[Rfam]
RNA sequence: UUGGAUAUAUAAUAAUCUCACUCCAACUUAAACUCUCUCACUGAUUAUUUGAUAAUAAUAACAGGUCAGAUAUUUUG
Numbered sequence: 001u002u003g004g005a006u007a008u009a010u011a012a013u014a015a016u017c018u019c020a021c022u023c024c025a026a027c028u029u030a031a032a033c034u035c036u037c038u039c040a041c042u043g044a045u046u047a048u049u050u051g052a053u054a055a056u057a058a059u060a061a062c063a064g065g066u067c068a069g070a071u072a073u074u075u076u077g
Base pairs, nucleotide, nucleotide: 001077003075004074005073006072007071
A member of the RNA family "Small nucleolar RNA SNORD81" from Macaca mulatta, 77 nucleotides long. The family has 22 seed sequences and 317 matches in Rfam 15.1. Gene Ontology terms of the family: RNA processing and nucleolus. Clan: SNORD26 clan. Taxonomically the source falls in Macaca (Eukaryota, Deuterostomia, Teleostomi, Tetrapoda). The family's RNA type in Rfam is C/D-box small nucleolar RNA. On this family, see Smith and Steitz, Mol Cell Biol 1998: "Classification of gas5 as a multi-small-nucleolar-RNA (snoRNA) host gene and a member of the 5'-terminal oligopyrimidine gene family reveals common features of snoRNA host genes".